Shown here is a 122-nucleotide RNA sequence from Clupea harengus, a member of the family "Small nucleolar RNA SNORA26".
RNA sequence: AUGACCAUUUAAGACUCACAAGUGUCUUGAGUGUCAAACACAGGGGGGCAGAAGAAUUCUCUCAAAAACCUAAAGUAAUGGCUAUCAAAACCGUACUUUGGAUCCUGUCGGGAGAAACACAC
Numbered sequence: 001a002u003g004a005c006c007a008u009u010u011a012a013g014a015c016u017c018a019c020a021a022g023u024g025u026c027u028u029g030a031g032u033g034u035c036a037a038a039c040a041c042a043g044g045g046g047g048g049c050a051g052a053a054g055a056a057u058u059c060u061c062u063c064a065a066a067a068a069c070c071u072a073a074a075g076u077a078a079u080g081g082c083u084a085u086c087a088a089a090a091c092c093g094u095a096c097u098u099u100g101g102a103u104c105c106u107g108u109c110g111g112g113a114g115a116a117a118c119a120c121a122c
Stems, first nucleotide, its partner, number of pairs: 002050002005047002008044003016037001018034001057116001059114005070101007079093003083090001
Dot-bracket structure: .((.((.(((.....(.(...............)..)....))).)).))......(.(((((......(((((((..(((.(......)))).)))))))........))))).)......
The family is grouped with related families in Rfam's "SNORA27 clan". The family has 76 seed sequences and 1,943 matches in Rfam 15.1. Rfam describes the family as follows. The snoRNA HBI-6 belong to the H/ACA family of snoRNAs, guiding the pseudouridylation of position U4522 if the 28S rRNA. HBI-6 is the human orthologue of mouse MBI-6 snoRNA.